[Rfam]
RNA sequence: AAGGCAGAGAUUGUGUGUAUCGGCUUUGUGCUAUUACUAAUGCACUUUGCUCGAAAGUGUUCUCUGCUAAAUUAAUAUUUAUUGAGGAAGAUGGGCAGUUGUGUUUCGUCUAUUUCGCUGGAAAUUUUCAACAAUCAUUUUCCCCACAUCU
Numbered sequence: 001a002a003g004g005c006a007g008a009g010a011u012u013g014u015g016u017g018u019a020u021c022g023g024c025u026u027u028g029u030g031c032u033a034u035u036a037c038u039a040a041u042g043c044a045c046u047u048u049g050c051u052c053g054a055a056a057g058u059g060u061u062c063u064c065u066g067c068u069a070a071a072u073u074a075a076u077a078u079u080u081a082u083u084g085a086g087g088a089a090g091a092u093g094g095g096c097a098g099u100u101g102u103g104u105u106u107c108g109u110c111u112a113u114u115u116c117g118c119u120g121g122a123a124a125u126u127u128u129c130a131a132c133a134a135u136c137a138u139u140u141u142c143c144c145c146a147c148a149u150c151u
Base pairs, nucleotide, nucleotide: 004067005066006065007064008063009062010061015045016044017043018042019041020040084145086143087142088141089140090139091138092137093136094135098132099131100130101129

Shown here is a 151-nucleotide sequence from Capsicum annuum, a member of the family "small nucleolar RNA snoR135". It scores 133 bits against the family's covariance model. Rfam 15.1 lists 837 matches to the family in 220 species. The family's consensus secondary structure was predicted with RNAalifold. Rfam classes the family as an H/ACA-box small nucleolar RNA.